Rfam assigns this 54-nucleotide RNA from Triplophysa tibetana to the family "UnaL2 LINE 3' element". About the family: The eel long interspersed element (LINE) UnaL2 and its partner short interspersed element (SINE) share a conserved 3' tail containing a stem-loop that is critical for their retrotransposition. Presumably, the first step of retrotransposition is the recognition of their 3' tails by UnaL2-encoded reverse transcriptase. The solution structure of a 17-nucleotide RNA derived from the 3' tail of UnaL2 was determined by NMR.
RNA sequence: AGGAUAAAGCAAUGUAAGUCGCUUUGGAUGAAAGCGUCUGCUAAAUGUAAAAUG
Numbered sequence: 001a002g003g004a005u006a007a008a009g010c011a012a013u014g015u016a017a018g019u020c021g022c023u024u025u026g027g028a029u030g031a032a033a034g035c036g037u038c039u040g041c042u043a044a045a046u047g048u049a050a051a052a053u054g
Stems, first nucleotide, its partner, number of pairs: 013043001014041003020036006
Dot-bracket structure: ............((((...((((((.....))))))..))).)...........
A search with the family's covariance model found it, with a score of 57 bits.